[Rfam]
RNA sequence: CUUCACCGAGCCCAGCCACAACGGCUCACCGGCGGGCCGGUCCUGGCCGUAGGUGGCCAGCAGGGCCUGUGCCUC
Numbered sequence: 001c002u003u004c005a006c007c008g009a010g011c012c013c014a015g016c017c018a019c020a021a022c023g024g025c026u027c028a029c030c031g032g033c034g035g036g037c038c039g040g041u042c043c044u045g046g047c048c049g050u051a052g053g054u055g056g057c058c059a060g061c062a063g064g065g066c067c068u069g070u071g072c073c074u075c
Stems, first nucleotide, its partner, number of pairs: 014026004032070002038065001043060003047056003
Shown here is a 75-nucleotide sequence from Streptomyces broussonetiae, a member of the family "ASpks TB sRNA". By type it is an antisense RNA. Rfam 15.1 lists 9,052 matches to the family in 683 species. The literature on the family includes a 2009 paper in Mol Microbiol by Arnvig and Young, "Identification of small RNAs in Mycobacterium tuberculosis".